[Rfam]
Nucleotides: 053
Base pairs, nucleotide, nucleotide: 011028012027013026015024016023033048034047035046036045037044038043
Number, partner (000 for none) and nucleotide at each position: 001000c002000g003000a004000c005000g006000g007000g008000c009000c010000a011028c012027g013026c014000u015024c016023c017000c018000c019000c020000a021000a022000c023016g024015g025000u026013g027012c028011g029000c030000g031000a032000g033048c034047u035046c036045u037044c038043u039000g040000c041000a042000a043038g044037g045036a046035g047034a048033g049000a050000a051000g052000a053000c
The record is a 53-nucleotide sequence from Sphingomonas lacunae, which matches "serC leader" in Rfam. The base pairs follow the family's consensus structure. By type it is a cis-regulatory leader. For this family Rfam cites "Evidence for a second class of S-adenosylmethionine riboswitches and other regulatory RNA motifs in alpha-proteobacteria" (Corbino et al., Genome Biol, 2005). Lineage of the source: Bacteria > Alphaproteobacteria > Sphingomonadales > Sphingomonadaceae > Sphingomonas. This family is a putative regulatory RNA structure that is found upstream of the serC-serA operon in some alpha-proteobacteria.